Overview
Bacteroidete tryptophan peptide leader RNA: a 134-nucleotide RNA from Dysgonomonas hofstadii. Rfam classes the family as a cis-regulatory leader. A search with the family's covariance model found it, with a score of 52 bits. Its family is annotated with regulation of gene expression and S-adenosylmethionine metabolic process in the Gene Ontology. Lineage of the source: Bacteria > Pseudomonadati > Bacteroidota > Dysgonomonadaceae > Dysgonomonas.
RNA sequence: UGCAAAAACAAAAAGAAAGAAGAAUGAAUUUUCUAUUAACAAAUACAUUUUGGUGGUGGCACUCUCAACUCAAAAAGUCGUGAGCCAAACUGGUAUGUAUUAAUGAAUGGAAAGUAUGAAAUACAAAGCCUGUC
Numbered sequence: 001u002g003c004a005a006a007a008a009c010a011a012a013a014a015g016a017a018a019g020a021a022g023a024a025u026g027a028a029u030u031u032u033c034u035a036u037u038a039a040c041a042a043a044u045a046c047a048u049u050u051u052g053g054u055g056g057u058g059g060c061a062c063u064c065u066c067a068a069c070u071c072a073a074a075a076a077g078u079c080g081u082g083a084g085c086c087a088a089a090c091u092g093g094u095a096u097g098u099a100u101u102a103a104u105g106a107a108u109g110g111a112a113a114g115u116a117u118g119a120a121a122u123a124c125a126a127a128g129c130c131u132g133u134c
Stems, first nucleotide, its partner, number of pairs: 036103003043100006050093001052091003059085002066080001068078003